Record summary
This 101-nucleotide sequence from Corchorus olitorius belongs to the Rfam family "MIR473 microRNA precursor family". It scores 54 bits against the family's covariance model. For this family Rfam cites "Novel and mechanical stress-responsive MicroRNAs in Populus trichocarpa that are absent from Arabidopsis" (Lu et al., Plant Cell, 2005). NCBI's taxonomy places the organism under Eukaryota, Pentapetalae, rosids, Malvaceae, Corchorus. Its family is annotated with RISC complex and miRNA-mediated post-transcriptional gene silencing in the Gene Ontology.
[Rfam]
RNA sequence: AUUGUUCACUCUCCCUCAAGGGCUUCCAGCAAUUGCUUGUAAAUCAAAUAACCCUCACAAGCAGCAAUGCUCGAGGCCUUUUUAAGGAGAGUGAAGAAAAC
Numbered sequence: 001a002u003u004g005u006u007c008a009c010u011c012u013c014c015c016u017c018a019a020g021g022g023c024u025u026c027c028a029g030c031a032a033u034u035g036c037u038u039g040u041a042a043a044u045c046a047a048a049u050a051a052c053c054c055u056c057a058c059a060a061g062c063a064g065c066a067a068u069g070c071u072c073g074a075g076g077c078c079u080u081u082u083u084a085a086g087g088a089g090a091g092u093g094a095a096g097a098a099a100a101c
Stems, first nucleotide, its partner, number of pairs: 006094009018081009